[Rfam]
RNA sequence: CUGCCGUGAUGGUACCAUUUUUCGUCAGCAGCAUCUCACACCCGUGUGAAUGGUGACUCCGUUGGGCUGAGCAG
Numbered sequence: 001c002u003g004c005c006g007u008g009a010u011g012g013u014a015c016c017a018u019u020u021u022u023c024g025u026c027a028g029c030a031g032c033a034u035c036u037c038a039c040a041c042c043c044g045u046g047u048g049a050a051u052g053g054u055g056a057c058u059c060c061g062u063u064g065g066g067c068u069g070a071g072c073a074g
Stems, first nucleotide, its partner, number of pairs: 002073003008026004
RNA: Small nucleolar RNA SNORD56